This 375-nucleotide sequence from Microterricola viridarii belongs to the Rfam family "Bacterial RNase P class A". A search with the family's covariance model found it, with a score of 304 bits. The source organism's lineage runs through Bacteria, Bacillati, Actinomycetes, Microbacteriaceae and Microterricola.
[Rfam]
RNA sequence: UGGGUCGGCAAGACGGUCGCGUCACGGAGUUUCGGCUCCGUGCCGAGGAACGUCCGGGCUCCGUAGAGCAGGACGGUGGGUAACGCCCACCCGGGGUAACCCGCGAGACAGUGCCACAGAAAACAGACCGCCCCGGGCUUUGCUCGGGGUAAGGGUGAAACGGUGGUGUAAGAGACCACCAGGGAUCAGGGCGACCUGAUCUGCUCGGUAAACCUCGUCCGGAGCAAGGUCAGACAGAGAACGAUGCGGCUGCUCGUCGCGUUCUCGGGUAGACCGCUAGAGGGCUGCGGCAACGUAGUCCCAAGAUAGAUGGCCGUCCAGCGCCGCACCUCGGUGCGGCAGGGACAGAACCCGGCGUAAUAGCCGGCCCAUUCG
Numbered sequence: 001u002g003g004g005u006c007g008g009c010a011a012g013a014c015g016g017u018c019g020c021g022u023c024a025c026g027g028a029g030u031u032u033c034g035g036c037u038c039c040g041u042g043c044c045g046a047g048g049a050a051c052g053u054c055c056g057g058g059c060u061c062c063g064u065a066g067a068g069c070a071g072g073a074c075g076g077u078g079g080g081u082a083a084c085g086c087c088c089a090c091c092c093g094g095g096g097u098a099a100c101c102c103g104c105g106a107g108a109c110a111g112u113g114c115c116a117c118a119g120a121a122a123a124c125a126g127a128c129c130g131c132c133c134c135g136g137g138c139u140u141u142g143c144u145c146g147g148g149g150u151a152a153g154g155g156u157g158a159a160a161c162g163g164u165g166g167u168g169u170a171a172g173a174g175a176c177c178a179c180c181a182g183g184g185a186u187c188a189g190g191g192c193g194a195c196c197u198g199a200u201c202u203g204c205u206c207g208g209u210a211a212a213c214c215u216c217g218u219c220c221g222g223a224g225c226a227a228g229g230u231c232a233g234a235c236a237g238a239g240a241a242c243g244a245u246g247c248g249g250c251u252g253c254u255c256g257u258c259g260c261g262u263u264c265u266c267g268g269g270u271a272g273a274c275c276g277c278u279a280g281a282g283g284g285c286u287g288c289g290g291c292a293a294c295g296u297a298g299u300c301c302c303a304a305g306a307u308a309g310a311u312g313g314c315c316g317u318c319c320a321g322c323g324c325c326g327c328a329c330c331u332c333g334g335u336g337c338g339g340c341a342g343g344g345a346c347a348g349a350a351c352c353c354g355g356c357g358u359a360a361u362a363g364c365c366g367g368c369c370c371a372u373u374c375g
Stems, first nucleotide, its partner, number of pairs: 001371009012318007020045002023042006050358003054355005059224004066255004071220005076090005091105001092103004106215002111213002113209003128154002130150009162180006182204001183202008228275004237266006246260005282301008
Ribonuclease P (RNase P) is a ubiquitous endoribonuclease, found in archaea, bacteria and eukarya as well as chloroplasts and mitochondria.